Source information: The family of this 126-nucleotide RNA sequence from Pipistrellus kuhlii is "Small nucleolar RNA SNORA24". Rfam classes the family as an H/ACA-box small nucleolar RNA. It scores 89 bits against the family's covariance model. From the family's description: ACA24 is a member of the H/ACA class of snoRNA that guide the sites of modification of uridines to pseudouridines. Its family is annotated with RNA processing and nucleolus in the Gene Ontology.
RNA sequence: UUUUAUUAAAAGUUCAAUGUCAUCACUGUGGCAGUCUCCUUUCCUAGUCAUGGAAGAGCAUUUUCUUAUUUAUUGGCAAAGCUGUUACCAUUUAAUUGGUAUCAGAUUCUUGCACAAGUAACAUUC
Numbered sequence: 001u002u003u004u005a006u007u008a009a010a011a012g013u014u015c016a017a018u019g020u021c022a023u024c025a026c027u028g029u030g031g032c033a034g035u036c037u038c039c040u041u042u043c044c045u046a047g048u049c050a051u052g053g054a055a056g057a058g059c060a061u062u063u064u065c066u067u068a069u070u071u072a073u074u075g076g077c078a079a080a081g082c083u084g085u086u087a088c089c090a091u092u093u094a095a096u097u098g099g100u101a102u103c104a105g106a107u108u109c110u111u112g113c114a115c116a117a118g119u120a121a122c123a124u125u126c
Stems, first nucleotide, its partner, number of pairs: 001050001010040001012038001015034001018033004067123001069121002073117003076113004082105003087100004